[Rfam]
This 328-nucleotide RNA sequence belongs to the Rfam family "7SK RNA".
RNA sequence: GGAUGUGCAGGUGGAAUUGGCCGCGACUCCCAUCACUCCCAUUGAUCGCUAGCGCUAGGAUCGGCUGAUCUGGUUGGUUAGAUGGGGCGUCCCCCGUUCCCCGCACGGAUCCGCGUCCGGCCUCGCCGAUGCCCCGCGCUCGGAUCGACGGCCGAGAGGCUCACCGCACGCACCACGCUCACGGCUACGGCGCACGGGUUUAACCACGGAGCUGCGAGUACCCACUUAGACCAAACCCCGGAGACGGCGACGGCGAUAAGAGGGAAGCACGCUCUGCACCAUAUGUUGCACAUCCAACACGGCGCUGCACGUGGCAGUUUGCCUUGUU
Numbered sequence: 001g002g003a004u005g006u007g008c009a010g011g012u013g014g015a016a017u018u019g020g021c022c023g024c025g026a027c028u029c030c031c032a033u034c035a036c037u038c039c040c041a042u043u044g045a046u047c048g049c050u051a052g053c054g055c056u057a058g059g060a061u062c063g064g065c066u067g068a069u070c071u072g073g074u075u076g077g078u079u080a081g082a083u084g085g086g087g088c089g090u091c092c093c094c095c096g097u098u099c100c101c102c103g104c105a106c107g108g109a110u111c112c113g114c115g116u117c118c119g120g121c122c123u124c125g126c127c128g129a130u131g132c133c134c135c136g137c138g139c140u141c142g143g144a145u146c147g148a149c150g151g152c153c154g155a156g157a158g159g160c161u162c163a164c165c166g167c168a169c170g171c172a173c174c175a176c177g178c179u180c181a182c183g184g185c186u187a188c189g190g191c192g193c194a195c196g197g198g199u200u201u202a203a204c205c206a207c208g209g210a211g212c213u214g215c216g217a218g219u220a221c222c223c224a225c226u227u228a229g230a231c232c233a234a235a236c237c238c239c240g241g242a243g244a245c246g247g248c249g250a251c252g253g254c255g256a257u258a259a260g261a262g263g264g265a266a267g268c269a270c271g272c273u274c275u276g277c278a279c280c281a282u283a284u285g286u287u288g289c290a291c292a293u294c295c296a297a298c299a300c301g302g303c304g305c306u307g308c309a310c311g312u313g314g315c316a317g318u319u320u321g322c323c324u325u326g327u328u
Base pairs, nucleotide, nucleotide: 001112002111003110005106006105007104008103010102011101013100014099015098019094020093025091026090027089028087029086030085031084032083033082034081036077037076039073040072041071044070045069046068047067048065049064050063120178121177125171126143127142128141129140131139132138146166147165154161210273211272212271219266221264222263223262225260226259235257237253238252296328297327298326299325301323302322303321304318305317306316307315308314